Annotation
The family of this 297-nucleotide RNA from Agrilus planipennis is "Metazoan signal recognition particle RNA". A search with the family's covariance model found it, with a score of 269 bits. By type it is a non-coding RNA gene. The source organism's lineage runs through Eukaryota, Neoptera, Endopterygota, Neuropteroidea and Agrilus. About the family: The signal recognition particle (SRP) is a universally conserved ribonucleoprotein. It is involved in the co-translational targeting of proteins to membranes. The eukaryotic SRP consists of a 300-nucleotide 7S RNA and six proteins: SRPs 72, 68, 54, 19, 14, and 9.
[Rfam]
RNA sequence: ACUGGGAGUUUGGCAAGCUCCUGUAACCCAGCUACUUGGGGGUCGGGUUCUGUGGAUGGCUUGAGGUCGGGAGUCCUGGGAUAGCAUUACUCACGUUGACUGGGUGUCCGCACUAAGCUCGGCAUCAAUAUGGACAUCUCGGAGGAGUCCGAGAUGGCCAGGUUGGCCAAGGAGGGGCGAACCGGGCCAGGAGGGAAACCUAGCAGCCAAAAGUCCCCGUGUCGAGCAGUAGUGGGAUCGCGCCCGGGAGUGAGGAUGUUAUAACAGCCCGAUCAAAACAGCUAGACCAAAACCUUU
Numbered sequence: 001a002c003u004g005g006g007a008g009u010u011u012g013g014c015a016a017g018c019u020c021c022u023g024u025a026a027c028c029c030a031g032c033u034a035c036u037u038g039g040g041g042g043u044c045g046g047g048u049u050c051u052g053u054g055g056a057u058g059g060c061u062u063g064a065g066g067u068c069g070g071g072a073g074u075c076c077u078g079g080g081a082u083a084g085c086a087u088u089a090c091u092c093a094c095g096u097u098g099a100c101u102g103g104g105u106g107u108c109c110g111c112a113c114u115a116a117g118c119u120c121g122g123c124a125u126c127a128a129u130a131u132g133g134a135c136a137u138c139u140c141g142g143a144g145g146a147g148u149c150c151g152a153g154a155u156g157g158c159c160a161g162g163u164u165g166g167c168c169a170a171g172g173a174g175g176g177g178c179g180a181a182c183c184g185g186g187c188c189a190g191g192a193g194g195g196a197a198a199c200c201u202a203g204c205a206g207c208c209a210a211a212a213g214u215c216c217c218c219g220u221g222u223c224g225a226g227c228a229g230u231a232g233u234g235g236g237a238u239c240g241c242g243c244c245c246g247g248g249a250g251u252g253a254g255g256a257u258g259u260u261a262u263a264a265c266a267g268c269c270c271g272a273u274c275a276a277a278a279c280a281g282c283u284a285g286a287c288c289a290a291a292a293c294c295u296u297u
Base pairs, nucleotide, nucleotide: 001043002042003041004022005021006020007019008018009017010016011015027040028039029038045295046294047293048292049291051289052288057284058283059282060281061280065274066273067272068271069270070269071268076267077266078265081262082261083260084259085258086257087256088255090254091253092252093251094250096248100247101246102245103244104243105242106241107240108236109235111234112233113232114231115230117227118226119225120224121223122222123221124220125219126165127164128163129162131160132159133158135156136155137154138153139152140151141150142149143148167171174217175216176215177214178213185208186207187206192201193200194199